[Rfam]
RNA sequence: UAGAAAUAACCGUAUGCAUCUUGUAUAUGUCCAGGAUAAUGGCCUGGACGUUUCUAUCCGACUUCCUAAAUGUCAGGGCUACAGGAGCAGCUUUUAAGCUG
Numbered sequence: 001u002a003g004a005a006a007u008a009a010c011c012g013u014a015u016g017c018a019u020c021u022u023g024u025a026u027a028u029g030u031c032c033a034g035g036a037u038a039a040u041g042g043c044c045u046g047g048a049c050g051u052u053u054c055u056a057u058c059c060g061a062c063u064u065c066c067u068a069a070a071u072g073u074c075a076g077g078g079c080u081a082c083a084g085g086a087g088c089a090g091c092u093u094u095u096a097a098g099c100u101g
Stems, first nucleotide, its partner, number of pairs: 019086007029049007058077002060074003